[Rfam]
Background:
Shown here is a 126-nucleotide sequence from Aleadryas rufinucha, a member of the family "Small nucleolar RNA SNORD22". The family has 49 seed sequences and 1,081 matches in Rfam 15.1. The family's consensus secondary structure was predicted with PFOLD. Rfam links the family to the GO terms RNA processing and nucleolus. A reference for the family is Tycowski et al. (1996), "A mammalian gene with introns instead of exons generating stable RNA products", Nature. It is annotated as a C/D-box small nucleolar RNA.
RNA sequence: CCCCCAUGAGGAAACCCCAACCCGUCUGACCCCCCCGACGGGCCCAGGACCUGCAAAGGUGGAACCCCCUGGAGCCCCCGGGGGGAAAAGAGGACGAGGAGUCCCGAAGGGGACGGUCUGAGGGGG
Numbered sequence: 001c002c003c004c005c006a007u008g009a010g011g012a013a014a015c016c017c018c019a020a021c022c023c024g025u026c027u028g029a030c031c032c033c034c035c036c037g038a039c040g041g042g043c044c045c046a047g048g049a050c051c052u053g054c055a056a057a058g059g060u061g062g063a064a065c066c067c068c069c070u071g072g073a074g075c076c077c078c079c080g081g082g083g084g085g086a087a088a089a090g091a092g093g094a095c096g097a098g099g100a101g102u103c104c105c106g107a108a109g110g111g112g113a114c115g116g117u118c119u120g121a122g123g124g125g126g
Stems, first nucleotide, its partner, number of pairs: 001125004